The family of this 120-nucleotide RNA from Ignavigranum ruoffiae is "FMN riboswitch aptamer (RFN element)". The base pairs follow the family's consensus structure, which is taken from published work. The source organism's lineage runs through Bacteria, Bacillati, Bacillota, Lactobacillales and Ignavigranum.

[Rfam]
RNA sequence: UAUAGUCUUCAGGGCAGGGUGAAAUUCCCGACCGGUGGUGACAGUCCACGAACUCUUUCUUAAGAGCUGAUUUGGUGAAAUUCCAAGACCGACAGUACAGUCUGGAUAAAGAAGAUAGAA
Numbered sequence: 001u002a003u004a005g006u007c008u009u010c011a012g013g014g015c016a017g018g019g020u021g022a023a024a025u026u027c028c029c030g031a032c033c034g035g036u037g038g039u040g041a042c043a044g045u046c047c048a049c050g051a052a053c054u055c056u057u058u059c060u061u062a063a064g065a066g067c068u069g070a071u072u073u074g075g076u077g078a079a080a081u082u083c084c085a086a087g088a089c090c091g092a093c094a095g096u097a098c099a100g101u102c103u104g105g106a107u108a109a110a111g112a113a114g115a116u117a118g119a120a
Base pairs, nucleotide, nucleotide: 003118005116006115007114008113009112010111017029018028019027031101032100033091034090035049036048037047038046044089045088053066054065071087072086073085074084075083093104094103095102